RNA sequence: UGCCUAAACUCUAUUUUUAGAGCAUGGCGCAAAAUCAUAAGACAUACCAAACCCGUCAUUCGGGGGCAUGUCUUAUGUUAUACGAGGAAACUUGUAUAGGGAUCGCAAGAUCCU
Numbered sequence: 001u002g003c004c005u006a007a008a009c010u011c012u013a014u015u016u017u018u019a020g021a022g023c024a025u026g027g028c029g030c031a032a033a034a035u036c037a038u039a040a041g042a043c044a045u046a047c048c049a050a051a052c053c054c055g056u057c058a059u060u061c062g063g064g065g066g067c068a069u070g071u072c073u074u075a076u077g078u079u080a081u082a083c084g085a086g087g088a089a090a091c092u093u094g095u096a097u098a099g100g101g102a103u104c105g106c107a108a109g110a111u112c113c114u
Stems, first nucleotide, its partner, number of pairs: 001029004009022005036077010052064004079098008099114006